[Rfam]
RNA sequence: UUCUUAUCAAGAGCAGGCGGAGGGACUAGCCCGAUGAAGCCCGGCAACCGGCCAAGAGCACGGUGCUAAUUCUUGCGGAGACUUAUUUAGGUUUCUGGGAGAUGAGAG
Numbered sequence: 001u002u003c004u005u006a007u008c009a010a011g012a013g014c015a016g017g018c019g020g021a022g023g024g025a026c027u028a029g030c031c032c033g034a035u036g037a038a039g040c041c042c043g044g045c046a047a048c049c050g051g052c053c054a055a056g057a058g059c060a061c062g063g064u065g066c067u068a069a070u071u072c073u074u075g076c077g078g079a080g081a082c083u084u085a086u087u088u089a090g091g092u093u094u095c096u097g098g099g100a101g102a103u104g105a106g107a108g
Stems, first nucleotide, its partner, number of pairs: 001108008013042001016041003022032003026075001028073002043067004048063002050059001071100001076097008

Shown here is a 108-nucleotide RNA sequence from Paenibacillus methanolicus, a member of the family "SAM riboswitch aptamer (S box leader)".
From the family's description: The SAM riboswitch is found upstream of a number of genes which code for proteins involved in methionine or cysteine biosynthesis in Gram-positive bacteria.